[Rfam]
RNA sequence: UCAGUCGAUGGGGAUGGGGUCCCCCGAAACCGCCCGCCGGGCUGAUGACUCCUACCGCGCG
Numbered sequence: 001u002c003a004g005u006c007g008a009u010g011g012g013g014a015u016g017g018g019g020u021c022c023c024c025c026g027a028a029a030c031c032g033c034c035c036g037c038c039g040g041g042c043u044g045a046u047g048a049c050u051c052c053u054a055c056c057g058c059g060c061g
Base pairs, nucleotide, nucleotide: 010025011024012023013022016052017051018050019049020048021047032042033041034040035039
RNA: Fluoride riboswitch aptamer (crcB RNA motif)